[Rfam]
RNA: L31-Firmicutes ribosomal protein leader
Organism: Bacillus sp. NRRL B-14911
RNA sequence: CUCUGUUUCGCAAGACUCAGGGCAAAAGGAG
Numbered sequence: 001c002u003c004u005g006u007u008u009c010g011c012a013a014g015a016c017u018c019a020g021g022g023c024a025a026a027a028g029g030a031g
Stems, first nucleotide, its partner, number of pairs: 001022005008015002